The family of this 46-nucleotide sequence from Nycticryphes semicollaris is "Histone 3' UTR stem-loop".
Pairs were carried over by alignment from the consensus structure, which is taken from published work.
The match comes from Rfam's covariance-model search (39 bits).
From the family's description: The mRNAs of metazoan histone genes lack a poly-A tail. 3' end processing occurs at a site between a highly conserved stem-loop (modelled by this family) and a purine rich region around 20 nts downstream (the histone downstream element, or HDE). The stem-loop is bound by a 31 kDa stem-loop binding protein (SLBP - also termed the histone hairpin binding protein, or HBP). Together with U7 snRNA binding of the HDE, SLBP binding nucleate s the formation of the processing complex. The histone 3' UTR stem-loop is also involved in nucleocytoplasmic transport of the mRNA, and in stability regulation and translation efficiency in the cytoplasm.
RNA sequence: CCAACGGCUCUUUUAAGAGCCACCCAAGCUUUCCUAAAAUGAGCUG
Numbered sequence: 001c002c003a004a005c006g007g008c009u010c011u012u013u014u015a016a017g018a019g020c021c022a023c024c025c026a027a028g029c030u031u032u033c034c035u036a037a038a039a040u041g042a043g044c045u046g
Stems, first nucleotide, its partner, number of pairs: 006021006